[Rfam]
The family of this 89-nucleotide RNA from Ilyobacter polytropus is "SAM riboswitch aptamer (S box leader)". Lineage of the source: Bacteria > Fusobacteriia > Fusobacteriales > Fusobacteriaceae > Ilyobacter polytropus. Pairs were carried over by alignment from the consensus structure, which is taken from published work.

RNA sequence: UAUCCAUCAAGAGAGGUGUAGGGACAGGCCCGGAGAUACCUCAGCAACCUACCUAUUCAGGUGUGGUGCUAAUUCCUGACAGAUGGCAA
Numbered sequence: 001u002a003u004c005c006a007u008c009a010a011g012a013g014a015g016g017u018g019u020a021g022g023g024a025c026a027g028g029c030c031c032g033g034a035g036a037u038a039c040c041u042c043a044g045c046a047a048c049c050u051a052c053c054u055a056u057u058c059a060g061g062u063g064u065g066g067u068g069c070u071a072a073u074u075c076c077u078g079a080c081a082g083a084u085g086g087c088a089a
Stems, first nucleotide, its partner, number of pairs: 001089001004086005013042005021031003025078004043070004048066002050063004074081001